The record is a 141-nucleotide RNA from Macrostomum lignano, which matches "U4 spliceosomal RNA" in Rfam.

RNA sequence: AGCUUUGCGCAGUGGCAGUACCGUAACCAAUGAGGUUUACCCGAGGUGCGGUUAUUGCUAGUUGAAAACUAUACCCAAUACCCCGCACAGGAUGCGUGAAAUACCGUAGCCUAGUGCAAUAUUUGAGGCUAUCAGUUGUUA
Numbered sequence: 001a002g003c004u005u006u007g008c009g010c011a012g013u014g015g016c017a018g019u020a021c022c023g024u025a026a027c028c029a030a031u032g033a034g035g036u037u038u039a040c041c042c043g044a045g046g047u048g049c050g051g052u053u054a055u056u057g058c059u060a061g062u063u064g065a066a067a068a069c070u071a072u073a074c075c076c077a078a079u080a081c082c083c084c085g086c087a088c089a090g091g092a093u094g095c096g097u098g099a100a101a102u103a104c105c106g107u108a109g110c111c112u113a114g115u116g117c118a119a120u121a122u123u124u125g126a127g128g129c130u131a132u133c134a135g136u137u138g139u140u141a
Base pairs, nucleotide, nucleotide: 020052021051022050023049024048026047027046028045034042035041085117086116087115089112090111091110093108094107095106096105130141131140133138

From the family's description: U4 small nuclear RNA (U4 snRNA) is a component of the major U2-dependent spliceosome. The family's consensus secondary structure is taken from published work.